[Rfam]
Shown here is an 83-nucleotide RNA from Coregonus sp. 'balchen', a member of the family "mir-130 microRNA precursor family". A search with the family's covariance model found it, with a score of 42 bits.

RNA sequence: AAUGGCACCCUAUUCCCUACAUAGUGCACUACUCUGGGCUGUUGUUAAAAGCAGUGCACUAUGUAAGGAAUAGGGUGCCAUUU
Dot-bracket structure: ((..((((((.(((((.((..(((((((((......................)))))))))..)).))))).))))))...))